[Rfam]
RNA sequence: AUGAAGAAAUACCAGCUUUUUCGUAUAUCCUUAAUAAUUGGUUUAAGGGUCUCUACUAGGAAACCGUAAAUUUCUUGCUACGAAAAAAUAUGCUUAGGAA
Numbered sequence: 001a002u003g004a005a006g007a008a009a010u011a012c013c014a015g016c017u018u019u020u021u022c023g024u025a026u027a028u029c030c031u032u033a034a035u036a037a038u039u040g041g042u043u044u045a046a047g048g049g050u051c052u053c054u055a056c057u058a059g060g061a062a063a064c065c066g067u068a069a070a071u072u073u074c075u076u077g078c079u080a081c082g083a084a085a086a087a088a089u090a091u092g093c094u095u096a097g098g099a100a
Stems, first nucleotide, its partner, number of pairs: 018086008029048006057077007
Source information: The record is a 100-nucleotide RNA from Bacillus sp. B1-b2, which matches "Purine riboswitch aptamer" in Rfam. The base pairs follow the family's consensus structure, which is taken from published work. The match comes from Rfam's covariance-model search (71 bits). Rfam describes the family as follows. Riboswitches are metabolite binding domains within certain messenger RNAs that serve as precision sensors for their corresponding targets. A reference for the family is Mandal et al. (2003), "Riboswitches Control Fundamental Biochemical Pathways in Bacillus subtilis and Other Bacteria", Cell. The organism belongs to Bacillus, within Bacteria.